[Rfam]
RNA sequence: UACUGUGGUGGUUUCUGGUUUUGGCAGAUCUGUAAGUGUAUCAGAGCUGUAGCAGAACUACCACAGAGAUCAGAAAGGAGAAGGCUGUGCUGAGAACUUCAGGCUUUCAGUUUUCAGCUCUUUGCUCAGCUCCUACAGAA
Numbered sequence: 001u002a003c004u005g006u007g008g009u010g011g012u013u014u015c016u017g018g019u020u021u022u023g024g025c026a027g028a029u030c031u032g033u034a035a036g037u038g039u040a041u042c043a044g045a046g047c048u049g050u051a052g053c054a055g056a057a058c059u060a061c062c063a064c065a066g067a068g069a070u071c072a073g074a075a076a077g078g079a080g081a082a083g084g085c086u087g088u089g090c091u092g093a094g095a096a097c098u099u100c101a102g103g104c105u106u107u108c109a110g111u112u113u114u115c116a117g118c119u120c121u122u123u124g125c126u127c128a129g130c131u132c133c134u135a136c137a138g139a140a
Stems, first nucleotide, its partner, number of pairs: 005064007024050002027047001029045004077133004100124004
Rfam assigns this 140-nucleotide sequence from Acanthisitta chloris to the family "Small nucleolar RNA SNORA12".
About the family: U108 belongs to the H/ACA family of snoRNAs.
The match comes from Rfam's covariance-model search (51 bits).
Rfam classes the family as an H/ACA-box small nucleolar RNA.
Gene Ontology terms of the family: RNA processing and nucleolus.
The literature on the family includes a 2005 paper in Nucleic Acids Res by Gu et al., "A novel experimental approach for systematic identification of box H/ACA snoRNAs from eukaryotes".